[Rfam]
RNA sequence: CCCUCCUACAAAGGCGUGUCUGUGGUUUCCUGUCUUUAGACACGUAAGAAUUGGAGGCAAACAAAUGUGGAUUUGGAAAAUCUGGGGCCAGCUUCCUUCCUGCAGGCUCAAGAUCGACCAUCCCACAUAG
Numbered sequence: 001c002c003c004u005c006c007u008a009c010a011a012a013g014g015c016g017u018g019u020c021u022g023u024g025g026u027u028u029c030c031u032g033u034c035u036u037u038a039g040a041c042a043c044g045u046a047a048g049a050a051u052u053g054g055a056g057g058c059a060a061a062c063a064a065a066u067g068u069g070g071a072u073u074u075g076g077a078a079a080a081u082c083u084g085g086g087g088c089c090a091g092c093u094u095c096c097u098u099c100c101u102g103c104a105g106g107c108u109c110a111a112g113a114u115c116g117a118c119c120a121u122c123c124c125a126c127a128u129a130g
Base pairs, nucleotide, nucleotide: 002057003056004055005054006053015044016043017042018041019040020039021038024030025029069123070122071121073120090108091107092106093105094104096102